[Rfam]
RNA sequence: CGAAGUCCGUUUGCUCCCCUCCCCUCACGGCUUCGGACUGGCGGGUCUU
Numbered sequence: 001c002g003a004a005g006u007c008c009g010u011u012u013g014c015u016c017c018c019c020u021c022c023c024c025u026c027a028c029g030g031c032u033u034c035g036g037a038c039u040g041g042c043g044g045g046u047c048u049u
Stems, first nucleotide, its partner, number of pairs: 007044004013038001015037003023030002
The record is a 49-nucleotide RNA from Xanthomonas campestris, which matches "Xanthomonadaceae sRNA sX5" in Rfam. Taxonomically the source falls in Xanthomonas campestris pv. campestris (Bacteria, Pseudomonadati, Lysobacterales, Xanthomonas). For this family Rfam cites "Genome-wide transcriptome analysis of the plant pathogen Xanthomonas identifies sRNAs with putative virulence functions" (Schmidtke et al., Nucleic Acids Res, 2011). Rfam's curators put it in the seed alignment.